[Rfam]
RNA sequence: AACUUCAUUGCUCAAUGCAUCAUCAGGGUACUAGCUCGUUAAUGGCUGUAUCCUAGAUGCGAUUUUUGUCUUUAGAUUGUAGCAUAGAUUAAUUUUACACCAGUUUGAGUCGAUCCUGAUACGUUUCUACUUGGGAUUGAUAUAGAAGUGUGUGAACAUAU
Number, nucleotide and partner (000 for none) at each position: 001a000002a000003c082004u081005u000006c079007a078008u000009u000010g000011c000012u000013c000014a000015a000016u000017g060018c059019a058020u057021c000022a000023u000024c056025a054026g053027g052028g051029u050030a049031c048032u000033a000034g000035c000036u000037c000038g000039u000040u000041a000042a000043u000044g000045g000046c000047u000048g031049u030050a029051u028052c027053c026054u025055a000056g024057a020058u019059g018060c017061g000062a000063u000064u000065u000066u000067u000068g000069u000070c000071u000072u000073u000074a000075g000076a000077u000078u007079g006080u000081a004082g003083c000084a000085u000086a000087g000088a000089u000090u000091a000092a000093u000094u000095u155096u154097a153098c152099a151100c150101c000102a000103g000104u000105u000106u000107g000108a000109g141110u140111c139112g138113a137114u136115c135116c134117u133118g000119a000120u000121a000122c000123g000124u000125u000126u000127c000128u000129a000130c000131u000132u000133g117134g116135g115136a114137u113138u112139g111140a110141u109142a000143u000144a000145g000146a000147a000148g000149u000150g100151u099152g098153u097154g096155a095156a000157c000158a000159u000160a000161u000

Source information: The record is a 161-nucleotide sequence from Torulaspora globosa, which matches "Small nucleolar RNA snR33" in Rfam. By type it is an H/ACA-box small nucleolar RNA. Its family is annotated with RNA processing and nucleolus in the Gene Ontology. On this family, see Balakin et al., Nucleic Acids Res 1993: "SnR31, snR32, and snR33: three novel, non-essential snRNAs from Saccharomyces cerevisiae".